[Rfam]
RNA sequence: CUUUGUUUUCAGGGAAGCUGUCAUGGCUGCCCGGUAUAAGUGGCGUUGACGAUUGGGUCUUGCGCAAUGGAAGUCUGUGAACCGUGUCAGGUUGGGAACAAAGCAGCACUAAACAGAAUUUUCCAUGUGCCGUAAGGGCGCCUGGUCCUAGUUAACUGUAUCGGUAACGCAUGGCAGUUUCCCUGAGGAUAAAG
Number, nucleotide and partner (000 for none) at each position: 001c194002u193003u192004u191005g190006u189007u188008u000009u186010c185011a184012g183013g182014g181015a000016a179017g178018c177019u176020g175021u174022c173023a172024u171025g170026g000027c000028u166029g165030c000031c000032c163033g162034g161035u160036a159037u158038a000039a000040g156041u155042g153043g152044c151045g000046u000047u000048g000049a000050c000051g147052a146053u145054u144055g143056g142057g141058u140059c136060u135061u134062g133063c132064g131065c127066a126067a000068u125069g124070g123071a122072a121073g000074u117075c116076u115077g114078u113079g000080a000081a000082c000083c000084g109085u108086g107087u106088c000089a000090g000091g000092u101093u100094g099095g000096g000097a000098a000099c094100a093101a092102a000103g000104c000105a000106g087107c086108a085109c084110u000111a000112a000113a078114c077115a076116g075117a074118a000119u000120u000121u072122u071123c070124c069125a068126u066127g065128u000129g000130c000131c064132g063133u062134a061135a060136g059137g000138g000139c000140g058141c057142c056143u055144g054145g053146u052147c051148c000149u000150a000151g044152u043153u042154a000155a041156c040157u000158g037159u036160a035161u034162c033163g032164g000165u029166a028167a000168c000169g000170c025171a024172u023173g022174g021175c020176a019177g018178u017179u016180u000181c014182c013183c012184u011185g010186a009187g000188g007189a006190u005191a004192a003193a002194g001
RNA: Bacterial large signal recognition particle RNA
Organism: Parablautia intestinalis